[Rfam]
RNA sequence: ACCUGUAACGGGUCUUCGUCAGAAGGUGCACCGUCAUCCACACGAUCCUUUCCUGUGCUCGCCUUGGCAGGAGCCCAGUUCGAGUCCGGUGGUGUCCAUUAAUUUCACUCGCAUGGGUAACCUGCGAUGCUGGGAGGACCUAAGCAAUGAGUACUACAGUCGAGGGAAGAAAUUCUGCAGACGCGUAUUCACCACUGGACGGCGGCGCUGGAAUACUUCGGCCUGUGGUUGGAGGGGGUUGUGUGGGCUGGUGUAUCAACUGAUUUU
Numbered sequence: 001a002c003c004u005g006u007a008a009c010g011g012g013u014c015u016u017c018g019u020c021a022g023a024a025g026g027u028g029c030a031c032c033g034u035c036a037u038c039c040a041c042a043c044g045a046u047c048c049u050u051u052c053c054u055g056u057g058c059u060c061g062c063c064u065u066g067g068c069a070g071g072a073g074c075c076c077a078g079u080u081c082g083a084g085u086c087c088g089g090u091g092g093u094g095u096c097c098a099u100u101a102a103u104u105u106c107a108c109u110c111g112c113a114u115g116g117g118u119a120a121c122c123u124g125c126g127a128u129g130c131u132g133g134g135a136g137g138a139c140c141u142a143a144g145c146a147a148u149g150a151g152u153a154c155u156a157c158a159g160u161c162g163a164g165g166g167a168a169g170a171a172a173u174u175c176u177g178c179a180g181a182c183g184c185g186u187a188u189u190c191a192c193c194a195c196u197g198g199a200c201g202g203c204g205g206c207g208c209u210g211g212a213a214u215a216c217u218u219c220g221g222c223c224u225g226u227g228g229u230u231g232g233a234g235g236g237g238g239u240u241g242u243g244u245g246g247g248c249u250g251g252u253g254u255a256u257c258a259a260c261u262g263a264u265u266u267u
Stems, first nucleotide, its partner, number of pairs: 001013003018264005025257007038246014061229003066223003070219004075211005080205003084200009103133002106129001109127005115122002140144001148191007159182003166175003
A member of the RNA family "Fungal signal recognition particle RNA" from Massariosphaeria phaeospora, 267 nucleotides long. It scores 140 bits against the family's covariance model. Taxonomically the source falls in Massariosphaeria (Eukaryota, Opisthokonta, Ascomycota, Dothideomycetes). Its Rfam clan is "SRP clan". The literature on the family includes a 2002 paper in Nucleic Acids Res by Regalia et al., "Prediction of signal recognition particle RNA genes". The family's RNA type in Rfam is non-coding RNA gene.